[Rfam]
RNA: c-di-GMP-I riboswitch aptamer
RNA sequence: UCACUAUAAGGGCAAAAUAUUUGAAAAAAUAUGACGCAAAGCUACAGGGGCUUAUGCUUACAGCAAUGCUAGCCAGCUGCCGAA
Numbered sequence: 001u002c003a004c005u006a007u008a009a010g011g012g013c014a015a016a017a018u019a020u021u022u023g024a025a026a027a028a029a030u031a032u033g034a035c036g037c038a039a040a041g042c043u044a045c046a047g048g049g050g051c052u053u054a055u056g057c058u059u060a061c062a063g064c065a066a067u068g069c070u071a072g073c074c075a076g077c078u079g080c081c082g083a084a
Stems, first nucleotide, its partner, number of pairs: 012037002017032006040078004047074002049070003056064003